[Rfam]
RNA sequence: UGGUGCCCAACGGUUGGAUACGGGGGAAUUUGCGAGGGAAGAGGCGUGUAAUUGUUCGGCAGAAGAAGAAAAAAAAAGUGAAAGUCAGUUCGACAAAGAUCGCUGUGGGAGCCUGCCGCGCUGUUCUUAAAGGUACAGUAGCGCCUAAGUAUGGGACAAGAAUUAAGUAAGCAUAAAGUUUUUGUUAAGCAAUUAAAAGAAGCUUUAAAGACACGGGGAGUAAAGGUUAAGAGUAAUGAUCUUUUUAAGUUUUUUGACCUUAUUAAGGACACCUGUCUGU
Numbered sequence: 001u002g003g004u005g006c007c008c009a010a011c012g013g014u015u016g017g018a019u020a021c022g023g024g025g026g027a028a029u030u031u032g033c034g035a036g037g038g039a040a041g042a043g044g045c046g047u048g049u050a051a052u053u054g055u056u057c058g059g060c061a062g063a064a065g066a067a068g069a070a071a072a073a074a075a076a077a078g079u080g081a082a083a084g085u086c087a088g089u090u091c092g093a094c095a096a097a098g099a100u101c102g103c104u105g106u107g108g109g110a111g112c113c114u115g116c117c118g119c120g121c122u123g124u125u126c127u128u129a130a131a132g133g134u135a136c137a138g139u140a141g142c143g144c145c146u147a148a149g150u151a152u153g154g155g156a157c158a159a160g161a162a163u164u165a166a167g168u169a170a171g172c173a174u175a176a177a178g179u180u181u182u183u184g185u186u187a188a189g190c191a192a193u194u195a196a197a198a199g200a201a202g203c204u205u206u207a208a209a210g211a212c213a214c215g216g217g218g219a220g221u222a223a224a225g226g227u228u229a230a231g232a233g234u235a236a237u238g239a240u241c242u243u244u245u246u247a248a249g250u251u252u253u254u255u256g257a258c259c260u261u262a263u264u265a266a267g268g269a270c271a272c273c274u275g276u277c278u279g280u
Stems, first nucleotide, its partner, number of pairs: 006026003012021001031043001033041001084134003089130002099125001101123001104120005139159001141157001144155004164207003167203002214256008224242006265280001267278004
Dot-bracket structure: .....(((...(........)..)))....(.(.......).)........................................(((..((........(.(..(((((.......)))))..).)...)).)))....(.(..((((....)))).).)....(((((.................................)).)))......((((((((..((((((.......))))))......))))))))........(.((((....)))).)
The family of this 280-nucleotide sequence from Sciurus vulgaris is "Mason-Pfizer monkey virus packaging signal". NCBI's taxonomy places the organism under Eukaryota, Teleostomi, Rodentia, Sciuromorpha, Sciurus. Rfam's curators write: This family represents a group of sequences that are related to the Mason-Pfizer monkey virus (MPMV) packaging signal. The packaging signal is located in the 5' UTR and is required for specific RNA encapsidation. Pairs were carried over by alignment from the consensus structure, which was predicted with PFOLD. Gene Ontology term of the family: viral genome packaging. Rfam classes the family as a cis-regulatory element.